[Rfam]
RNA sequence: CGAUAAGUUCCAUUUGAAGGGCGUCUAGUUUGGUAACGAGCUAGAGAAUGACUGGGUGAAUUGCUGGGACUUCCUAAAGCUUUAUCCACCACAGCGUAAUGAGAAAUCGUAAGCGCGAUGGUUUGAAAAGGGUAAGGAUAUGACAAUGGAUAAUCAGCAGCCAAGCUCCUGUGAGGAAACUCAGGAGAAGGUUCAACGACUAGAGAAGACGGUCUAAGGCAAAAAGCUAUGGCUAUGAAUCUCGUAGGGCAGCAAAAGCUGUUCGAAGUGCCCAGCCCCUGUGACAAGCAGGGUGAAGAUAUAGUCUAUUCUAUGAUCGAAAGACAUAG
Numbered sequence: 001c002g003a004u005a006a007g008u009u010c011c012a013u014u015u016g017a018a019g020g021g022c023g024u025c026u027a028g029u030u031u032g033g034u035a036a037c038g039a040g041c042u043a044g045a046g047a048a049u050g051a052c053u054g055g056g057u058g059a060a061u062u063g064c065u066g067g068g069a070c071u072u073c074c075u076a077a078a079g080c081u082u083u084a085u086c087c088a089c090c091a092c093a094g095c096g097u098a099a100u101g102a103g104a105a106a107u108c109g110u111a112a113g114c115g116c117g118a119u120g121g122u123u124u125g126a127a128a129a130g131g132g133u134a135a136g137g138a139u140a141u142g143a144c145a146a147u148g149g150a151u152a153a154u155c156a157g158c159a160g161c162c163a164a165g166c167u168c169c170u171g172u173g174a175g176g177a178a179a180c181u182c183a184g185g186a187g188a189a190g191g192u193u194c195a196a197c198g199a200c201u202a203g204a205g206a207a208g209a210c211g212g213u214c215u216a217a218g219g220c221a222a223a224a225a226g227c228u229a230u231g232g233c234u235a236u237g238a239a240u241c242u243c244g245u246a247g248g249g250c251a252g253c254a255a256a257a258g259c260u261g262u263u264c265g266a267a268g269u270g271c272c273c274a275g276c277c278c279c280u281g282u283g284a285c286a287a288g289c290a291g292g293g294u295g296a297a298g299a300u301a302u303a304g305u306c307u308a309u310u311c312u313a314u315g316a317u318c319g320a321a322a323g324a325c326a327u328a329g
Stems, first nucleotide, its partner, number of pairs: 005026001007024002010021002013018001029040003052275004057270002062159006072150003160192002167185002196307001198306005277293006313327003317324002
A member of the RNA family "Group I catalytic intron" from Priestia koreensis, 329 nucleotides long. On this family, see Cate et al., Science 1996: "Crystal structure of a group I ribozyme domain: principles of RNA packing". Group I catalytic introns are large self-splicing ribozymes.